[Rfam]
RNA sequence: GAGUUCAUGCCAGUGGCGAGCCUAAGGGGGUUAACCCCGAAGGCGUAGGGAAACCGAGUGCCCGCAGCCCGGGAAACCGGGUGAGGGGCAGGGUCUGUCAGGGCCUGGAGUCACUGGCAUGAGGCUAGAAACCGGGCGAUCUAGACCGGGGCAGGCCGAAGGCGGGGGAAACCCCGCUGGAGGGCCGAAUAGGGGUUCUGACGUGCAAUUCGUUCCCUUGACCCCGGUCUAGGGGUAAAAGGCCAAUCUAGCCCGGUGAUAGCUAGUU
Numbered sequence: 001g002a003g004u005u006c007a008u009g010c011c012a013g014u015g016g017c018g019a020g021c022c023u024a025a026g027g028g029g030g031u032u033a034a035c036c037c038c039g040a041a042g043g044c045g046u047a048g049g050g051a052a053a054c055c056g057a058g059u060g061c062c063c064g065c066a067g068c069c070c071g072g073g074a075a076a077c078c079g080g081g082u083g084a085g086g087g088g089c090a091g092g093g094u095c096u097g098u099c100a101g102g103g104c105c106u107g108g109a110g111u112c113a114c115u116g117g118c119a120u121g122a123g124g125c126u127a128g129a130a131a132c133c134g135g136g137c138g139a140u141c142u143a144g145a146c147c148g149g150g151g152c153a154g155g156c157c158g159a160a161g162g163c164g165g166g167g168g169a170a171a172c173c174c175c176g177c178u179g180g181a182g183g184g185c186c187g188a189a190u191a192g193g194g195g196u197u198c199u200g201a202c203g204u205g206c207a208a209u210u211c212g213u214u215c216c217c218u219u220g221a222c223c224c225c226g227g228u229c230u231a232g233g234g235g236u237a238a239a240a241g242g243c244c245a246a247u248c249u250a251g252c253c254c255g256g257u258g259a260u261a262g263c264u265a266g267u268u
Stems, first nucleotide, its partner, number of pairs: 005122013020044004026038004048055002060089004067082006092105004125266002128263001132256006141232011152220001154186004161178007192217004198212001200211002234244003
This 268-nucleotide part of an RNA from Acidianus hospitalis belongs to the Rfam family "Archaeal large subunit ribosomal RNA". The organism belongs to Acidianus hospitalis, within Archaea.